Annotation:
Shown here is a 70-nucleotide sequence from Protea cynaroides, a member of the family "Small nucleolar RNA Z105". Gene Ontology terms of the family: RNA processing and nucleolus.

RNA sequence: UUUGAAUAAUGAUGAUUUCAGAAUUGCCGAUAGAUUUCAUGACUGGAAAUAAUCCUCCUACUCAUUCUGA
Numbered sequence: 001u002u003u004g005a006a007u008a009a010u011g012a013u014g015a016u017u018u019c020a021g022a023a024u025u026g027c028c029g030a031u032a033g034a035u036u037u038c039a040u041g042a043c044u045g046g047a048a049a050u051a052a053u054c055c056u057c058c059u060a061c062u063c064a065u066u067c068u069g070a
Stems, first nucleotide, its partner, number of pairs: 006065002009062001028046001031041001